GcvB RNA: a 196-nucleotide RNA from Photobacterium profundum. On this family, see Miyakoshi et al., EMBO J 2015: "Cross talk between ABC transporter mRNAs via a target mRNA-derived sponge of the GcvB small RNA". From the family's description: The gcvB gene encodes a small untranslated RNA involved in expression of the dipeptide and oligopeptide transport systems in Escherichia coli. Included several unknown homologues in alignment (Bateman A pers obs). A search with the family's covariance model found it, with a score of 79 bits. By type it is a non-coding RNA gene. The base pairs follow the family's consensus structure, which is taken from published work.

RNA sequence: GUUUCGCAACGUAGGCUUAAGCGUCUGAUAUUCUGCCCUCUGGCAUUAUCGGUUAAGUCAAUGUUGCGAUGUUGUGUUUGCAUAUUGUCCGAGUUGUGUCGGACAGGUAGUGAAUCUACCAUUUACUUCUUUUUUGUUUGACCUGUCUGUCAAAGUUUGAUUCUUAGCACUGCGCCCCAACGCAGUGCUUUUUUUU
Numbered sequence: 001g002u003u004u005c006g007c008a009a010c011g012u013a014g015g016c017u018u019a020a021g022c023g024u025c026u027g028a029u030a031u032u033c034u035g036c037c038c039u040c041u042g043g044c045a046u047u048a049u050c051g052g053u054u055a056a057g058u059c060a061a062u063g064u065u066g067c068g069a070u071g072u073u074g075u076g077u078u079u080g081c082a083u084a085u086u087g088u089c090c091g092a093g094u095u096g097u098g099u100c101g102g103a104c105a106g107g108u109a110g111u112g113a114a115u116c117u118a119c120c121a122u123u124u125a126c127u128u129c130u131u132u133u134u135u136g137u138u139u140g141a142c143c144u145g146u147c148u149g150u151c152a153a154a155g156u157u158u159g160a161u162u163c164u165u166a167g168c169a170c171u172g173c174g175c176c177c178c179a180a181c182g183c184a185g186u187g188c189u190u191u192u193u194u195u196u
Stems, first nucleotide, its partner, number of pairs: 009058002012055001019054002025052006034045004085106008107119004136161003166189008